[Rfam]
RNA sequence: GGAUGUGAGGGCGAUCUGGUUGCGACAUCUGUCACCCCAUUGAUCGCCAGGGUUGAUUCGGCUGAUCUGGCUGGCUAGGCGGGUGUCCCCUUCCUCCCUCACCGCUCCAUGUGCGUCCCUCCCGAAGCUGCGCGCUCGGUCAAAGAGGACGACCAUCCCCGCUAGAGGAGGACCGGUCUUCGGUCAAGGGUAUACGAGUAGCUGCGCUCCCCUGCUAGAACCUCCAAACAAGCUCUCAAGGUCCAAAUUUAUACAGAGAAAAAAGAUGUCAGCAGUUACCUCGGGCCUGGGGCAGGCGGGAAGAUAAGCUGCAAAUGGACACAAC
Numbered sequence: 001g002g003a004u005g006u007g008a009g010g011g012c013g014a015u016c017u018g019g020u021u022g023c024g025a026c027a028u029c030u031g032u033c034a035c036c037c038c039a040u041u042g043a044u045c046g047c048c049a050g051g052g053u054u055g056a057u058u059c060g061g062c063u064g065a066u067c068u069g070g071c072u073g074g075c076u077a078g079g080c081g082g083g084u085g086u087c088c089c090c091u092u093c094c095u096c097c098c099u100c101a102c103c104g105c106u107c108c109a110u111g112u113g114c115g116u117c118c119c120u121c122c123c124g125a126a127g128c129u130g131c132g133c134g135c136u137c138g139g140u141c142a143a144a145g146a147g148g149a150c151g152a153c154c155a156u157c158c159c160c161g162c163u164a165g166a167g168g169a170g171g172a173c174c175g176g177u178c179u180u181c182g183g184u185c186a187a188g189g190g191u192a193u194a195c196g197a198g199u200a201g202c203u204g205c206g207c208u209c210c211c212c213u214g215c216u217a218g219a220a221c222c223u224c225c226a227a228a229c230a231a232g233c234u235c236u237c238a239a240g241g242u243c244c245a246a247a248u249u250u251a252u253a254c255a256g257a258g259a260a261a262a263a264a265g266a267u268g269u270c271a272g273c274a275g276u277u278a279c280c281u282c283g284g285g286c287c288u289g290g291g292g293c294a295g296g297c298g299g300g301a302a303g304a305u306a307a308g309c310u311g312c313a314a315a316u317g318g319a320c321a322c323a324a325c
Base pairs, nucleotide, nucleotide: 001108002107003106005102006101007100008099009098010097011096013093014092018090019089024087025086026085027084028083029082030081031080032079033078035074036073037070038069039068042067043066044065045064046062047061048060116171117170118168119167120166121165122139123138124137125136127135128134141161147158148157149156201309202308203307207303208302211300212299213298214297215296222292223291224290225289231288232287
7SK RNA: a 325-nucleotide RNA from Bos mutus. Clan: 7SK clan. Taxonomically the source falls in Bos (Eukaryota, Opisthokonta, Deuterostomia, Teleostomi). Rfam 15.1 lists 49,373 matches to the family in 668 species. Rfam's curators write: 7SK was discovered as an abundant small nuclear RNA in the mid-70s but a possible function has only recently been suggested. Two independent studies have found that 7SK RNA binds the CDK9/cyclin T complex (known as elongation factor P-TEFb).